[Rfam]
Record summary
Bacterial small subunit ribosomal RNA: a 354-nucleotide part of an RNA from Veillonella sp. oral taxon 780. Gene Ontology terms of the family: ribosome and structural constituent of ribosome. Lineage of the source: Bacteria > Bacillati > Veillonellaceae > Veillonella > Veillonella sp. oral taxon 780.
RNA sequence: GGCGUAAAGCGCGCGCAGGCGGCCUAUCCAGUCUGUCUUAAAAGUUCGGGGCUCAACCCCGUGAUGGGAUGGAAACUAGUAGGCUAGAGUAUCGGAGAGGAAAGCGGAAUUCCUAGUGUAGCGGUGAAAUGCGUAGAUAUUAGGAAGAACACCAGUGGCGAAGGCGGCUUUCUGGACGAAAACUGACGCUGAGGCGCGAAAGCCAGGGGAGCGAACGGGAUUAGAUACCCCGGUAGUCCUGGCCGUAAACGAUGGGUACUAGGUGUAGGAGGUAUCGACCCCUUCUGUGCCGGAGUUAACGCAAUAAGUACCCCGCCUGGGGAGUACGGUCGCAAGGCUGAAACUCAAAGGAAU
Number, nucleotide and partner (000 for none) at each position: 001g317002g316003c315004g000005u000006a000007a000008a000009g314010c000011g197012c196013g195014c194015g000016c191017a000018g190019g189020c188021g000022g084023c083024c082025u081026a080027u079028c000029c000030a077031g076032u073033c072034u071035g070036u069037c068038u067039u066040a065041a000042a000043a000044g000045u063046u000047c061048g060049g059050g058051g057052c000053u000054c000055a000056a000057c051058c050059c049060c048061g047062u000063g045064a000065u040066g039067g038068g037069a036070u035071g034072g033073a032074a000075a000076c031077u030078a000079g027080u026081a025082g024083g023084c022085u000086a000087g000088a184089g183090u182091a000092u179093c178094g177095g000096a000097g000098a000099g173100g172101a171102a170103a169104g168105c167106g150107g000108a000109a000110u146111u145112c144113c143114u142115a141116g140117u139118g000119u000120a000121g132122c131123g130124g000125u000126g000127a000128a000129a000130u123131g122132c121133g000134u000135a000136g000137a000138u000139a117140u116141u115142a114143g113144g112145a111146a110147g000148a000149a000150c106151a000152c000153c000154a000155g000156u000157g000158g165159c164160g000161a000162a000163g000164g159165c158166g000167g105168c104169u103170u102171u101172c100173u099174g000175g000176a000177c094178g093179a092180a000181a000182a090183c089184u088185g000186a000187c000188g020189c019190u018191g016192a000193g000194g014195c013196g012197c011198g000199a000200a000201a000202g243203c242204c241205a240206g239207g238208g000209g000210a000211g237212c236213g000214a000215a000216c232217g231218g230219g229220a000221u000222u000223a000224g000225a000226u000227a000228c000229c219230c218231c217232g216233g000234u000235a000236g212237u211238c207239c206240u205241g204242g203243c202244c000245g000246u000247a000248a000249a000250c000251g000252a000253u000254g313255g312256g311257u310258a309259c308260u000261a000262g291263g290264u289265g288266u287267a286268g285269g284270a283271g282272g281273u000274a000275u000276c000277g000278a000279c000280c000281c272282c271283u270284u269285c268286u267287g266288u265289g264290c263291c262292g000293g000294a000295g302296u301297u000298a000299a000300c000301g296302c295303a000304a000305u000306a000307a000308g259309u258310a257311c256312c255313c254314c009315g003316c002317c001318u000319g346320g345321g344322g000323a000324g000325u000326a000327c000328g339329g338330u337331c336332g000333c000334a000335a000336g331337g330338c329339u328340g000341a000342a000343a000344c321345u320346c319347a000348a000349a000350g000351g000352a000353a000354u000